[Rfam]
Small nucleolar RNA Z103: a 93-nucleotide RNA from Salix dunnii. Rfam 15.1 lists 2,844 matches to the family in 233 species. A search with the family's covariance model found it, with a score of 93 bits. For this family Rfam cites "The high diversity of snoRNAs in plants: identification and comparative study of 120 snoRNA genes from Oryza sativa" (Chen et al., Nucleic Acids Res, 2003). Taxonomically the source falls in Salix (Eukaryota, Streptophyta, eudicotyledons, Gunneridae).

RNA sequence: GUGGAGGUGAUGAUUAUUUCCCCAGAUGAUCGAAGCUGAACAAACUGAGCGAUUUUUCUCUUUCGAGAGAUCCAAGCCAGAUUUCUGAUCCAC
Numbered sequence: 001g002u003g004g005a006g007g008u009g010a011u012g013a014u015u016a017u018u019u020c021c022c023c024a025g026a027u028g029a030u031c032g033a034a035g036c037u038g039a040a041c042a043a044a045c046u047g048a049g050c051g052a053u054u055u056u057u058c059u060c061u062u063u064c065g066a067g068a069g070a071u072c073c074a075a076g077c078c079a080g081a082u083u084u085c086u087g088a089u090c091c092a093c
Stems, first nucleotide, its partner, number of pairs: 001093005